Rfam assigns this 47-nucleotide sequence from Musa balbisiana to the family "Plastid-rpl16 group II-D1 intron". About the family: Plastid-rpl16 is a non-coding RNA (ncRNA) recognised in plastids. It was recognised in and intronic region of a ribosome rpl16 gene. Rfam links the family to the GO term Group II intron splicing. A reference for the family is Richter et al. (2023), "Retrograde signaling in plants: A critical review focusing on the GUN pathway and beyond", Plant Commun.
[Rfam]
Nucleotides: 047
Stems, first nucleotide, its partner, number of pairs: 007041002010038004015033003
Number, partner (000 for none) and nucleotide at each position: 001000a002000a003000g004000a005000g006000c007041c008040u009000c010038g011037g012036g013035u014000g015033a016032a017031u018000a019000a020000a021000a022000a023000c024000u025000a026000a027000a028000g029000a030000g031017a032016u033015u034000g035013a036012c037011u038010c039000g040008a041007g042000a043000a044000g045000g046000a047000a